This 72-nucleotide sequence from Cylicocyclus nassatus belongs to the Rfam family "mir-33 microRNA precursor family". On this family, see Li et al., BMC Genomics 2009: "Direct sequencing and expression analysis of a large number of miRNAs in Aedes aegypti and a multi-species survey of novel mosquito miRNAs". Its family is annotated with gene silencing by miRNA and RISC complex in the Gene Ontology. The family's consensus secondary structure was predicted with PFOLD. Lineage of the source: Eukaryota > Eumetazoa > Protostomia > Chromadorea > Cylicocyclus.
RNA sequence: UGCGGUUGCAUUGCAGUUGCAUUGCAGUUGCACUGCACACUGCAAUGCAGUGCAACUGCAAUGCAGUGUGCA
Numbered sequence: 001u002g003c004g005g006u007u008g009c010a011u012u013g014c015a016g017u018u019g020c021a022u023u024g025c026a027g028u029u030g031c032a033c034u035g036c037a038c039a040c041u042g043c044a045a046u047g048c049a050g051u052g053c054a055a056c057u058g059c060a061a062u063g064c065a066g067u068g069u070g071c072a
Stems, first nucleotide, its partner, number of pairs: 001072004006068001007065010019053001021051006
Dot-bracket structure: ((((.(((((((((((..(.((((((...................)))))).)..))))))))))..)))))